[Rfam]
RNA: CpoB/ybgF ICR thermometer
Organism: Lonsdalea quercina
RNA sequence: CCAGAUCUCUAUCGUUUCUUACGGUAAAGAAAAACCCGCGGUUCUGGGUCAUGACGAAGCUGCUUACGCUAAAAACCGUCGCGCCGUUCUGGUCUACUAAGAGUCUUGCAUGAACAGUAACUUCAGACCUUACCUUCUC
Numbered sequence: 001c002c003a004g005a006u007c008u009c010u011a012u013c014g015u016u017u018c019u020u021a022c023g024g025u026a027a028a029g030a031a032a033a034a035c036c037c038g039c040g041g042u043u044c045u046g047g048g049u050c051a052u053g054a055c056g057a058a059g060c061u062g063c064u065u066a067c068g069c070u071a072a073a074a075a076c077c078g079u080c081g082c083g084c085c086g087u088u089c090u091g092g093u094c095u096a097c098u099a100a101g102a103g104u105c106u107u108g109c110a111u112g113a114a115c116a117g118u119a120a121c122u123u124c125a126g127a128c129c130u131u132a133c134c135u136u137c138u139c
Stems, first nucleotide, its partner, number of pairs: 001047004007041002014035004019030002054138001057135001059133001062130001065127001068124001075118002078115001079113003083109002086106001089103002